[Rfam]
RNA sequence: GGCGGGGAAGCCGAAAACCGUUAAAAUAGAGUAGGCC
Numbered sequence: 001g002g003c004g005g006g007g008a009a010g011c012c013g014a015a016a017a018c019c020g021u022u023a024a025a026a027u028a029g030a031g032u033a034g035g036c037c
Base pairs, nucleotide, nucleotide: 002021003020004019005018010036011035012034
Overview: Shown here is a 37-nucleotide RNA from Niastella koreensis, a member of the family "DUF805b RNA". Its Rfam clan is "DUF805 clan". The source organism's lineage runs through Bacteria, Pseudomonadati, Bacteroidota, Chitinophagaceae and Niastella koreensis. The family's RNA type in Rfam is cis-regulatory element. It is one of the family's seed sequences.